Small nucleolar RNA snoR136: a 145-nucleotide RNA from Corchorus capsularis.
On this family, see Chen and Wu, Nucleic Acids Res 2009: "Mining small RNA sequencing data: a new approach to identify small nucleolar RNAs in Arabidopsis".
Rfam 15.1 lists 452 matches to the family in 212 species.
Gene Ontology terms of the family: nucleolus and RNA processing.
The base pairs follow the family's consensus structure, which was predicted with mfold.
The family's RNA type in Rfam is H/ACA-box small nucleolar RNA.
RNA sequence: GUGGCUUCUUUUUCCUUUAUAAUCUGAAACUGAAAUUUUAAUAAUGUAAAAUUUUUGUUUUAUAAAAAGAAGCCUAAAUUAAUUGUUCCCCUCGCUAUCCGGUGCUUCAAAUGAUGUUGCAUUUGGACGUCGGGGAACUACAAAU
Number, nucleotide and partner (000 for none) at each position: 001g000002u076003g074004g073005c072006u000007u000008c069009u068010u067011u066012u065013u064014c000015c000016u062017u000018u000019a059020u000021a000022a000023u000024c000025u000026g000027a056028a055029a054030c000031u000032g000033a000034a000035a000036u049037u048038u000039u000040a000041a000042u000043a000044a000045u000046g000047u000048a037049a036050a000051a000052u000053u000054u029055u028056u027057g000058u000059u019060u000061u000062a016063u000064a013065a012066a011067a010068a009069g008070a000071a000072g005073c004074c003075u000076a002077a000078a000079u000080u000081a000082a000083u000084u000085g138086u137087u136088c135089c134090c133091c132092u000093c129094g128095c000096u000097a000098u127099c126100c125101g124102g123103u000104g000105c000106u000107u000108c116109a115110a000111a000112u000113g000114a000115u109116g108117u000118u000119g000120c000121a000122u000123u102124u101125g100126g099127a098128c094129g093130u000131c000132g091133g090134g089135g088136a087137a086138c085139u000140a000141c000142a000143a000144a000145u000